[Rfam]
RNA: PhotoRC-II RNA
RNA sequence: UAACGCUUCAAACACCCCGCAAACCGAGACCUCUAGGGUGUCUAAAUUACGUCUCUCAUAUCCUGUCUAAGGGUGACAGGAAAUAGUAACUCCA
Number, nucleotide and partner (000 for none) at each position: 001u000002a000003a000004c000005g000006c000007u000008u000009c000010a000011a000012a000013c040014a039015c038016c037017c036018c000019g034020c000021a000022a000023a000024c000025c000026g055027a054028g053029a052030c051031c000032u000033c000034u019035a000036g017037g016038g015039u014040g013041u000042c000043u000044a000045a000046a000047u000048u000049a000050c000051g030052u029053c028054u027055c026056u000057c000058a000059u000060a000061u081062c080063c079064u078065g077066u076067c075068u000069a000070a000071g000072g000073g000074u000075g067076a066077c065078a064079g063080g062081a061082a000083a000084u000085a000086g000087u000088a000089a000090c000091u000092c000093c000094a000